[Rfam]
RNA sequence: CCCUCCUACAAAUGUGUAUUUGGUUCCCUGUCUUUGGACACAUAAGAAUUGAAGGAAAAGAAAAGUGGAUUUGGAGAUAUCUGGACCUGCUUGUUCCUCUUGGGGUCAGAAUCAAUCAUCCCAUAUGA
Numbered sequence: 001c002c003c004u005c006c007u008a009c010a011a012a013u014g015u016g017u018a019u020u021u022g023g024u025u026c027c028c029u030g031u032c033u034u035u036g037g038a039c040a041c042a043u044a045a046g047a048a049u050u051g052a053a054g055g056a057a058a059a060g061a062a063a064a065g066u067g068g069a070u071u072u073g074g075a076g077a078u079a080u081c082u083g084g085a086c087c088u089g090c091u092u093g094u095u096c097c098u099c100u101u102g103g104g105g106u107c108a109g110a111a112u113c114a115a116u117c118a119u120c121c122c123a124u125a126u127g128a
Base pairs, nucleotide, nucleotide: 002055003054004053006051013042014041015040016039017038019036022028023027067121068120069119071118090104091103092102093101

The record is a 128-nucleotide RNA sequence from Ictidomys tridecemlineatus, which matches "Small nucleolar RNA SNORA38" in Rfam.
Gene Ontology terms of the family: nucleolus, Cajal body and RNA processing.
From the family's description: ACA38 is a member of the H/ACA class of snoRNA that guide the sites of modification of uridines to pseudouridines.